[Rfam]
Nucleotides: 078
Stems, first nucleotide, its partner, number of pairs: 001078004
Number, partner (000 for none) and nucleotide at each position: 001078g002077a003076g004075a005000u006000a007000u008000g009000a010000u011000g012000a013000a014000u015000a016000c017000u018000u019000u020000a021000u022000u023000u024000g025000g026000u027000c028000c029000g030000u031000g032000u033000u034000u035000c036000u037000g038000a039000a040000u041000a042000a043000u044000c045000a046000u047000u048000g049000a050000c051000u052000g053000a054000u055000a056000a057000a058000c059000c060000a061000u062000u063000a064000c065000c066000a067000g068000u069000u070000u071000c072000u073000g074000a075004u076003c077002u078001c
Shown here is a 78-nucleotide sequence from Phtheirospermum japonicum, a member of the family "Small nucleolar RNA SNORD18".
Rfam links the family to the GO terms RNA processing and nucleolus.
The source organism's lineage runs through Eukaryota, Viridiplantae, Magnoliopsida, lamiids and Phtheirospermum.
Pairs were carried over by alignment from the consensus structure, which was predicted with PFOLD.
By type it is a C/D-box small nucleolar RNA.
For this family Rfam cites "Two different snoRNAs are encoded in introns of amphibian and human L1 ribosomal protein genes" (Prislei et al., Nucleic Acids Res, 1993).